A member of the RNA family "Bacterial small signal recognition particle RNA" from a Nitrospirota bacterium, 98 nucleotides long. A reference for the family is Rosenblad et al. (2003), "SRPDB: Signal Recognition Particle Database", Nucleic Acids Res. The base pairs follow the family's consensus structure, which is taken from published work. A search with the family's covariance model found it, with a score of 70 bits. The family's RNA type in Rfam is non-coding RNA gene.
RNA sequence: GGGCUGGCCCUGCGCAACAGUUACCUGUGAACCCCGUCAGGUCCGGAAGGAAGCAGCGGUAAGCAUCGUAGUUGUGUGCCGCAGCAAGCUGGUCCCUU
Numbered sequence: 001g002g003g004c005u006g007g008c009c010c011u012g013c014g015c016a017a018c019a020g021u022u023a024c025c026u027g028u029g030a031a032c033c034c035c036g037u038c039a040g041g042u043c044c045g046g047a048a049g050g051a052a053g054c055a056g057c058g059g060u061a062a063g064c065a066u067c068g069u070a071g072u073u074g075u076g077u078g079c080c081g082c083a084g085c086a087a088g089c090u091g092g093u094c095c096c097u098u
Stems, first nucleotide, its partner, number of pairs: 004092005010084005015076001017075006026065003034059004042051003